[Rfam]
RNA sequence: CAAUGCCAUUUGGUAUCCGACUUGUUGUCAUUCUUUGUGAUUGUGUGUCUCGAAACAUGGCAGAAUACAAGGGGAACGGAUCUUGCGACACUGGUUGCUUAUUUAUGAGUUUCUAGUUACUAUAUGCCCGUUUACAUGU
Numbered sequence: 001c002a003a004u005g006c007c008a009u010u011u012g013g014u015a016u017c018c019g020a021c022u023u024g025u026u027g028u029c030a031u032u033c034u035u036u037g038u039g040a041u042u043g044u045g046u047g048u049c050u051c052g053a054a055a056c057a058u059g060g061c062a063g064a065a066u067a068c069a070a071g072g073g074g075a076a077c078g079g080a081u082c083u084u085g086c087g088a089c090a091c092u093g094g095u096u097g098c099u100u101a102u103u104u105a106u107g108a109g110u111u112u113c114u115a116g117u118u119a120c121u122a123u124a125u126g127c128c129c130g131u132u133u134a135c136a137u138g139u
Base pairs, nucleotide, nucleotide: 004062005061006060007059008058009057019049020048021047023045024044025043027041028040029039075132076131077130078129079128090117091116092115093114094113097110098109099108